Group II catalytic intron D1-D4-3: a 174-nucleotide sequence from Ensifer fredii. The sequence is in the family's curated seed alignment. The organism belongs to Ensifer fredii, within Bacteria.

[Rfam]
RNA sequence: GUCGUCGCGAGGCGGGGUCUGAAGGAAAGCUGUAAGCAAAGUGCCGGCCUGACGAACAGGAAGCGCAUAUAAGGCGUCCGCAUCCGGGCGAGGGAGCCAAAGUGCCCGAAGCCCGAUAUCACCCGGAGGGUGCGGGCGUAGAUGCGACAGGUAUAUGGCACGAAGGUCACGCGC
Number, nucleotide and partner (000 for none) at each position: 001g000002u015003c014004g013005u012006c011007g000008c000009g000010a000011g006012g005013c004014g003015g002016g000017g000018u000019c000020u000021g000022a000023a000024g000025g000026a000027a000028a000029g174030c173031u000032g000033u000034a000035a000036g167037c166038a000039a000040a000041g161042u160043g159044c158045c157046g156047g152048c151049c150050u149051g148052a000053c000054g000055a000056a000057c000058a000059g000060g000061a000062a000063g000064c146065g145066c144067a143068u142069a000070u000071a000072a000073g000074g139075c138076g137077u000078c135079c134080g133081c132082a131083u130084c129085c000086g114087g113088g112089c111090g000091a000092g107093g106094g105095a000096g000097c000098c000099a000100a000101a000102g000103u000104g000105c094106c093107c092108g000109a000110a000111g089112c088113c087114c086115g000116a000117u000118a000119u000120c000121a000122c000123c000124c000125g000126g000127a000128g000129g084130g083131u082132g081133c080134g079135g078136g000137c076138g075139u074140a000141g000142a068143u067144g066145c065146g064147a000148c051149a050150g049151g048152u047153a000154u000155a000156u046157g045158g044159c043160a042161c041162g000163a000164a000165g000166g037167u036168c000169a000170c000171g000172c000173g030174c029